[Rfam]
RNA sequence: ACAACAUUUAGACUGUCGGUCAACCGAGCAACAUCACGCGCUCCGUGGAAGAUCUUCCUUUCGUCGU
Numbered sequence: 001a002c003a004a005c006a007u008u009u010a011g012a013c014u015g016u017c018g019g020u021c022a023a024c025c026g027a028g029c030a031a032c033a034u035c036a037c038g039c040g041c042u043c044c045g046u047g048g049a050a051g052a053u054c055u056u057c058c059u060u061u062c063g064u065c066g067u
Stems, first nucleotide, its partner, number of pairs: 004064002011057002015053003020049002023046002026043004
This 67-nucleotide RNA sequence from Bombyx mori belongs to the Rfam family "mir-2774 microRNA precursor family". NCBI's taxonomy places the organism under Eukaryota, Arthropoda, Pancrustacea, Bombycidae, Bombyx.